[Rfam]
RNA sequence: UGGUAGAUGCACCCUGAUAGUUACUCCCCGAAGCUCACGGUUCGGGGGUUUUUUUU
Dot-bracket structure: .(((......)))...........((((((((.(....).))))))))........
RNA: Nitrogen stress-induced RNA 1